[Rfam]
RNA sequence: GACUUGGUCUAAGCUCCUCAGUGUCAUGUGAACAAACCUGAGGAGUUUAGAGCAAGUAAA
Number, nucleotide and partner (000 for none) at each position: 001g000002a057003c056004u055005u054006g053007g000008u051009c050010u049011a048012a047013g046014c045015u044016c043017c042018u041019c040020a039021g038022u000023g037024u000025c000026a000027u000028g000029u000030g000031a000032a000033c000034a000035a000036a000037c023038c021039u020040g019041a018042g017043g016044a015045g014046u013047u012048u011049a010050g009051a008052g000053c006054a005055a004056g003057u002058a000059a000060a000
RNA: mir-7132 microRNA precursor family
Organism: Cyprinus carpio